[Rfam]
RNA sequence: UUGAUGAAUUUAAAGACUUCAACUUACAGACUUGAUGAUUUAAAAAACUUCAACUAGCAUUCUUGGAGAUUUUGAAGACUUCAUCU
Numbered sequence: 001u002u003g004a005u006g007a008a009u010u011u012a013a014a015g016a017c018u019u020c021a022a023c024u025u026a027c028a029g030a031c032u033u034g035a036u037g038a039u040u041u042a043a044a045a046a047a048c049u050u051c052a053a054c055u056a057g058c059a060u061u062c063u064u065g066g067a068g069a070u071u072u073u074g075a076a077g078a079c080u081u082c083a084u085c086u
Base pairs, nucleotide, nucleotide: 002083003082004081006079009076010075011074012073013072014071017068018067019066020065021064025059027057032053033052034051035050037048
RNA: MIR8024 microRNA precursor family